The record is a 128-nucleotide RNA from Nesospiza acunhae, which matches "Small nucleolar RNA SNORA65" in Rfam. By type it is an H/ACA-box small nucleolar RNA. About the family: U65 belongs to the H/ACA class of snoRNAs which are thought to guide the sites of modification of uridines to pseudouridines. The family is grouped with related families in Rfam's "SNORA65 clan". Its family is annotated with nucleolus and RNA processing in the Gene Ontology. The family has 14 seed sequences and 1,089 matches in Rfam 15.1.
RNA sequence: CCUGCCACCGUACCUGUUCUGAGUUCUGUGGCUGGUACAUUCCAGUGGUGAGCUGAGAGGAAGCCCCAGGCAGGAAGCAGUCCUCUCCUGAUGGUGGGGAGGCCUGUGCCGAAAACCUGGGAACAGAU
Dot-bracket structure: ....((((.(.......((.(.(.....)..).)).......).))))...............(((.((...((...(((.((..(((.......)))..)).)))..)).....).)))).......